[Rfam]
RNA sequence: ACGCCUUUUAAUUGAAAUCCAGAGAGGUUUCUAAGGGUGUGUGAAAAGCGCGUUAUAGACGAAGCUUGUUUUCUUACACCCUUUCUAAGUUAGAAAGGGUGUUUUUUAU
Numbered sequence: 001a002c003g004c005c006u007u008u009u010a011a012u013u014g015a016a017a018u019c020c021a022g023a024g025a026g027g028u029u030u031c032u033a034a035g036g037g038u039g040u041g042u043g044a045a046a047a048g049c050g051c052g053u054u055a056u057a058g059a060c061g062a063a064g065c066u067u068g069u070u071u072u073c074u075u076a077c078a079c080c081c082u083u084u085c086u087a088a089g090u091u092a093g094a095a096a097g098g099g100u101g102u103u104u105u106u107u108a109u
Base pairs, nucleotide, nucleotide: 003038004037005036006035007034008033014031015030016029017028018027019026043074045072046071047070048069049068050067052065053064054063056061076102077101078100079099080098081097082096083095084094085093086092087091
PyrR binding site: a 109-nucleotide sequence from Priestia megaterium.
It scores 62 bits against the family's covariance model.
The organism belongs to Priestia megaterium, within Bacteria.
Its family is annotated with pyrimidine nucleobase transport and pyrimidine nucleobase biosynthetic process in the Gene Ontology.
Rfam classes the family as a cis-regulatory element.
For this family Rfam cites "Molecular recognition of pyr mRNA by the Bacillus subtilis attenuation regulatory protein PyrR" (Bonner et al., Nucleic Acids Res, 2001).
Rfam describes the family as follows. This family represents the PyrR binding site and terminator structure. This RNA structure is found upstream of a variety of genes involved in pyrimidine biosynthesis and transport. The alignment also includes a portion of the antiterminator structure.